[Rfam]
RNA sequence: CCUGGCUGAGGUAGUGGUUUGUGCUGUUUGUCGGGUCGACACACUGCCCGCUAUGGAGAUGACUGCGCAAACCACUGCCUUGCUGGA
Numbered sequence: 001c002c003u004g005g006c007u008g009a010g011g012u013a014g015u016g017g018u019u020u021g022u023g024c025u026g027u028u029u030g031u032c033g034g035g036u037c038g039a040c041a042c043a044c045u046g047c048c049c050g051c052u053a054u055g056g057a058g059a060u061g062a063c064u065g066c067g068c069a070a071a072c073c074a075c076u077g078c079c080u081u082g083c084u085g086g087a
Stems, first nucleotide, its partner, number of pairs: 002086005008081017026063002033048002051058002
RNA: let-7 microRNA precursor family